Description
Guanidine-I riboswitch aptamer: a 129-nucleotide RNA sequence from Caldisalinibacter kiritimatiensis. The match comes from Rfam's covariance-model search (65 bits). A reference for the family is Reiss et al. (2017), "Structural Basis for Ligand Binding to the Guanidine-I Riboswitch", Structure. Gene Ontology term of the family: regulation of gene expression.
RNA sequence: UGGAAGUGUACCUAGGGUUCCGGAGAAAUAUCUUUAUUAUUUAUAUACUUGUAUUUCUCGACUGGUCCAAGUGGUACAGGUAUUACUUUUUUAGUAAUAUUACACCGUGGGGAUAAAAGCCCGGUCGGG
Numbered sequence: 001u002g003g004a005a006g007u008g009u010a011c012c013u014a015g016g017g018u019u020c021c022g023g024a025g026a027a028a029u030a031u032c033u034u035u036a037u038u039a040u041u042u043a044u045a046u047a048c049u050u051g052u053a054u055u056u057c058u059c060g061a062c063u064g065g066u067c068c069a070a071g072u073g074g075u076a077c078a079g080g081u082a083u084u085a086c087u088u089u090u091u092u093a094g095u096a097a098u099a100u101u102a103c104a105c106c107g108u109g110g111g112g113a114u115a116a117a118a119g120c121c122c123g124g125u126c127g128g129g
Stems, first nucleotide, its partner, number of pairs: 007078006015068002020065002022062001023059009079101008103124001105127001110122003